[Rfam]
RNA sequence: CAGGACAAUGGUGAGUGCCAGCACUUGCCCUGGGGCCAUCCCUACGCAGGAGCAGGGUGCUCACCGCAUCUG
Numbered sequence: 001c002a003g004g005a006c007a008a009u010g011g012u013g014a015g016u017g018c019c020a021g022c023a024c025u026u027g028c029c030c031u032g033g034g035g036c037c038a039u040c041c042c043u044a045c046g047c048a049g050g051a052g053c054a055g056g057g058u059g060c061u062c063a064c065c066g067c068a069u070c071u072g
Stems, first nucleotide, its partner, number of pairs: 001072004009066011021053002026048003032042003
RNA: mir-1909 microRNA precursor family